Record summary: A member of the RNA family "mir-574 microRNA precursor family" from Cnephaeus nilssonii, 81 nucleotides long. For this family Rfam cites "MicroRNA identity and abundance in porcine skeletal muscles determined by deep sequencing" (Nielsen et al., Anim Genet, 2010). Clan: mir-574 microRNA precursor clan. The source organism's lineage runs through Eukaryota, Chordata, Sarcopterygii, Amniota and Cnephaeus. It scores 83 bits against the family's covariance model.
RNA sequence: AGGCCUAGAGAGAGAAGCAGGGUCUGAUCUUUAGCCUCCGAGACAGCUGUUGAUCAACCUUUGCCUUUCUCUUUCUCUCCG
Numbered sequence: 001a002g003g004c005c006u007a008g009a010g011a012g013a014g015a016a017g018c019a020g021g022g023u024c025u026g027a028u029c030u031u032u033a034g035c036c037u038c039c040g041a042g043a044c045a046g047c048u049g050u051u052g053a054u055c056a057a058c059c060u061u062u063g064c065c066u067u068u069c070u071c072u073u074u075c076u077c078u079c080c081g
Stems, first nucleotide, its partner, number of pairs: 008073008017064004022059001025056005032049004